RNA: Small nucleolar RNA Z122
Organism: Coptis chinensis
RNA sequence: UUUGGGAAGUGAUGAUACAUUUUUCGAUAUUAUCAGACGCUCAAUUUUAUUGGGCUAUGCUGAAUAUUUUGCACGUCAGUCUGAUCCCAUA
Numbered sequence: 001u002u003u004g005g006g007a008a009g010u011g012a013u014g015a016u017a018c019a020u021u022u023u024u025c026g027a028u029a030u031u032a033u034c035a036g037a038c039g040c041u042c043a044a045u046u047u048u049a050u051u052g053g054g055c056u057a058u059g060c061u062g063a064a065u066a067u068u069u070u071g072c073a074c075g076u077c078a079g080u081c082u083g084a085u086c087c088c089a090u091a
Stems, first nucleotide, its partner, number of pairs: 001091001003089005